[Rfam]
RNA sequence: GUAGGACUGGUUCGAGAACUCCCAGUAUAAAAAACCAAAGGAUU
Numbered sequence: 001g002u003a004g005g006a007c008u009g010g011u012u013c014g015a016g017a018a019c020u021c022c023c024a025g026u027a028u029a030a031a032a033a034a035c036c037a038a039a040g041g042a043u044u
Base pairs, nucleotide, nucleotide: 006026007025008024009023010022016036
Shown here is a 44-nucleotide RNA sequence from Clostridium putrefaciens, a member of the family "PreQ1 (pre queuosine) riboswitch aptamer". It scores 45 bits against the family's covariance model. About the family: This family is a bacterial riboswitch that binds to the metabolite preQ1, an intermediate in the biosynthesis of the modified nucleoside queuosine from GTP. One example of this riboswitch is located in the leader of the Bacillus subtilis ykvJKLM (queCDEF) operon which encodes four genes necessary for queuosine production. Lineage of the source: Bacteria > Bacillati > Clostridia > Eubacteriales > Clostridium.